A member of the RNA family "U7 small nuclear RNA" from Odocoileus virginianus, 62 nucleotides long.
RNA sequence: GAGUGUUACAGCUGUUUUGGAAUUUGUCUAGCAGGUUUUCCGGUUCACACCAGAAAGCCAGA
Numbered sequence: 001g002a003g004u005g006u007u008a009c010a011g012c013u014g015u016u017u018u019g020g021a022a023u024u025u026g027u028c029u030a031g032c033a034g035g036u037u038u039u040c041c042g043g044u045u046c047a048c049a050c051c052a053g054a055a056a057g058c059c060a061g062a
Stems, first nucleotide, its partner, number of pairs: 034059007042051003

About this RNA
The family's consensus secondary structure was predicted with PFOLD. The match comes from Rfam's covariance-model search (63 bits).